[Rfam]
RNA sequence: GUUGAGGGGAAUGUUGUCUGGAUCGAGGAUAUUAUAUAUACGCAGAUACGUAUAUAUAUUAAUGCAAGCAAUUGAUCAUAUAUGUAUAUAGAGUAUUCUCGGACCAGGCUUCAUCCCCCCUAAC
Dot-bracket structure: ((((.((((.(((..((((((..(((((((((............................................................)))))))))..))))))..))).)))).))))
A member of the RNA family "mir-166 microRNA precursor family" from Raphanus sativus, 124 nucleotides long.
This family represents the plant microRNA (miRNA) precursor mir-166.
Rfam 15.1 lists 2,599 matches to the family in 229 species.
Lineage of the source: Eukaryota > Streptophyta > Spermatophyta > Brassiceae > Raphanus.